[Rfam]
Bacterial RNase P class A: a 408-nucleotide RNA sequence from Roseovarius gahaiensis. Pairs were carried over by alignment from the consensus structure, which is taken from published work.

RNA sequence: GCGGAAGGCUGGAUGGCCGCGAGGUGCUUGGCACCCCGAGGAAAGUCCGGACUCCACAAGGCAAUGGUGCCGGGUAACGCCCGGCCGGGGAAACCCGAGGGAAAGCGCCACAGAAAACAAACCGCCGUGCCUGUCGCGGUAAGGGUGAAACGGUGGGGUAAGAGCCCACCGCGGGGCUGGUAACAGCGCCGGCAUGGCAAGCCCCACCAGGAGCAAUGCCGAAUAGGGAUCGCGCGCGGGGGCAGGUCUUGGAUCAUUCCAAGAUACCGCCCGCAGGGACGUCUUGCCCCAGCGAUCCGGGUUGGCAGCUUGAGGUGCCGUGGCAACACGGUGCCCAGAGGAAUGGUCAUCCAGUCCCGGACCACGGUUCGGGAUGGACAGAAUCCGGCUUACAGGCCUUCCGCGCUA
Dot-bracket structure: ((((((((((((((((((.((.(((((...))))).))....[[[.[[[[[((((....[[.[.((((((((((.....)))))(((((....)))).)((...(((((............((((((((.....))))))..)).......((((((.......))))))((((.((((....)))).))).)..)))..)))))))))))))...((((......((((((...........................................(((.(.].]]).)))..)))))).....)))).......((((((((....))))))))..........)))))))................................]]]]]]]].).))))))))))....
Numbered sequence: 001g002c003g004g005a006a007g008g009c010u011g012g013a014u015g016g017c018c019g020c021g022a023g024g025u026g027c028u029u030g031g032c033a034c035c036c037c038g039a040g041g042a043a044a045g046u047c048c049g050g051a052c053u054c055c056a057c058a059a060g061g062c063a064a065u066g067g068u069g070c071c072g073g074g075u076a077a078c079g080c081c082c083g084g085c086c087g088g089g090g091a092a093a094c095c096c097g098a099g100g101g102a103a104a105g106c107g108c109c110a111c112a113g114a115a116a117a118c119a120a121a122c123c124g125c126c127g128u129g130c131c132u133g134u135c136g137c138g139g140u141a142a143g144g145g146u147g148a149a150a151c152g153g154u155g156g157g158g159u160a161a162g163a164g165c166c167c168a169c170c171g172c173g174g175g176g177c178u179g180g181u182a183a184c185a186g187c188g189c190c191g192g193c194a195u196g197g198c199a200a201g202c203c204c205c206a207c208c209a210g211g212a213g214c215a216a217u218g219c220c221g222a223a224u225a226g227g228g229a230u231c232g233c234g235c236g237c238g239g240g241g242g243c244a245g246g247u248c249u250u251g252g253a254u255c256a257u258u259c260c261a262a263g264a265u266a267c268c269g270c271c272c273g274c275a276g277g278g279a280c281g282u283c284u285u286g287c288c289c290c291a292g293c294g295a296u297c298c299g300g301g302u303u304g305g306c307a308g309c310u311u312g313a314g315g316u317g318c319c320g321u322g323g324c325a326a327c328a329c330g331g332u333g334c335c336c337a338g339a340g341g342a343a344u345g346g347u348c349a350u351c352c353a354g355u356c357c358c359g360g361a362c363c364a365c366g367g368u369u370c371g372g373g374a375u376g377g378a379c380a381g382a383a384u385c386c387g388g389c390u391u392a393c394a395g396g397c398c399u400u401c402c403g404c405g406c407u408a
Stems, first nucleotide, its partner, number of pairs: 001404010011393001012351007020038002023035005043391003047388005052213004060285002063282001065209005070084005085099001086097004100204002105202002107198003122144002124140006152170006171193001172191003176187004217307004227298006276290003280286001315334008